[Rfam]
RNA: Plastid-rps12 3UTR RNA
RNA sequence: GGUUUCCAUUGGUGCAAAUCCAAUCGCCUUGAUUUGAAUUGGGGAUGAAAAGCGAUUCCUCAUUGGUAGCGAAUGGUUAUCCAUUAAGCGGGGAAAUAGUAUU
Number, nucleotide and partner (000 for none) at each position: 001g000002g000003u000004u000005u000006c000007c000008a000009u023010u022011g021012g020013u000014g000015c000016a000017a000018a000019u000020c012021c011022a010023a009024u000025c000026g000027c000028c000029u000030u000031g000032a000033u000034u000035u000036g000037a000038a000039u000040u000041g000042g000043g000044g000045a000046u000047g000048a000049a000050a000051a000052g000053c000054g000055a000056u000057u000058c000059c092060u091061c090062a084063u083064u000065g081066g080067u079068a078069g077070c076071g000072a000073a000074u000075g000076g070077u069078u068079a067080u066081c065082c000083a063084u062085u000086a000087a000088g000089c000090g061091g060092g059093g000094a000095a000096a000097u000098a000099g000100u000101a000102u000103u000